[Rfam]
RNA sequence: AGCCGCGCUGUGUCAAACGGACUCGACGGUGCUGAAGAACAUCAGGAUUUUUCCGUUUUCCCUUGAUGGCCAACGAAACGGCAGACGAGCUUCUUACCCGUCCAGUGC
Numbered sequence: 001a002g003c004c005g006c007g008c009u010g011u012g013u014c015a016a017a018c019g020g021a022c023u024c025g026a027c028g029g030u031g032c033u034g035a036a037g038a039a040c041a042u043c044a045g046g047a048u049u050u051u052u053c054c055g056u057u058u059u060c061c062c063u064u065g066a067u068g069g070c071c072a073a074c075g076a077a078a079c080g081g082c083a084g085a086c087g088a089g090c091u092u093c094u095u096a097c098c099c100g101u102c103c104a105g106u107g108c
Base pairs, nucleotide, nucleotide: 006107007106008105009104012022013021014020025102026101027100028099029098034093035092036091037090040068041067042066043065044064045063046062069082070081071080
The family of this 108-nucleotide sequence from Brucella gallinifaecis is "Rhizobiales sRNA Atu_At1". The family's RNA type in Rfam is small RNA. Rfam 15.1 lists 200 matches to the family in 177 species. Lineage of the source: Bacteria > Pseudomonadota > Alphaproteobacteria > Brucellaceae > Brucella. A reference for the family is Wilms et al. (2012), "Deep sequencing uncovers numerous small RNAs on all four replicons of the plant pathogen Agrobacterium tumefaciens", RNA Biol.